The family of this 82-nucleotide sequence from Pediculus humanus is "mir-31 microRNA precursor family". The family's consensus secondary structure was predicted with RNAalifold. It scores 63 bits against the family's covariance model. For this family Rfam cites "The small RNA profile during Drosophila melanogaster development" (Aravin et al., Dev Cell, 2003). Its family is annotated with gene silencing by miRNA and RISC complex in the Gene Ontology.
RNA sequence: GACGGUGAGGUAGGCAAGAUGUCGGCAUAGCUGAAAUGAUUAUAAUAUGCGGCUGUGUCACAUCGAGCCAGCUUGAGCCGCC
Numbered sequence: 001g002a003c004g005g006u007g008a009g010g011u012a013g014g015c016a017a018g019a020u021g022u023c024g025g026c027a028u029a030g031c032u033g034a035a036a037u038g039a040u041u042a043u044a045a046u047a048u049g050c051g052g053c054u055g056u057g058u059c060a061c062a063u064c065g066a067g068c069c070a071g072c073u074u075g076a077g078c079c080g081c082c
Stems, first nucleotide, its partner, number of pairs: 006076001008074004013069003018064004024059008